Background: Pseudomonas sRNA P27: a 189-nucleotide RNA from Pseudomonas sp. v388. The literature on the family includes a 2006 paper in Nucleic Acids Res by Livny et al., "Identification of 17 Pseudomonas aeruginosa sRNAs and prediction of sRNA-encoding genes in 10 diverse pathogens using the bioinformatic tool sRNAPredict2". The match comes from Rfam's covariance-model search (194 bits).
[Rfam]
RNA sequence: GGGUUUAACUCCUGCUUGUUACCGUUUCAUCCGACCGAAGCCAGAUGUCGUUUUGGUGUCUGAUUCGGUAAGGAACCGGGAGCACCAUCUGCGUAGGCUUGUGGUUUAAGGCUUGCGCCGCCUACGGUCUUGGAUAGCCCCCGCCAGGCAGGGACCCCAAUCUUGGAUGCGACACGGCAAGCCGUGCCG
Dot-bracket structure: .((.((....((((........((...((((.(.(....).).)))).))...(((((((((.(((......))).)))..))))))...(((..((((....((((((((((............))))))))))))))..)))))))....)).)).............(.((((......)))).).
Annotation:
It is annotated as a small RNA.